[Rfam]
RNA sequence: CGUCCCAGUCCGUUUUGCUGGUUUGCUGUCAGCGUUUGUACGGUUGCUGUGCAAAUCCAUGCAAAACUGAUUGCGUCG
Numbered sequence: 001c002g003u004c005c006c007a008g009u010c011c012g013u014u015u016u017g018c019u020g021g022u023u024u025g026c027u028g029u030c031a032g033c034g035u036u037u038g039u040a041c042g043g044u045u046g047c048u049g050u051g052c053a054a055a056u057c058c059a060u061g062c063a064a065a066a067c068u069g070a071u072u073g074c075g076u077c078g
Base pairs, nucleotide, nucleotide: 004075006073007072008071009070010069012067013066014065015064016063017062018061020058021057022055023054024053025052026051031048032047033046
RNA: mir-19 microRNA precursor family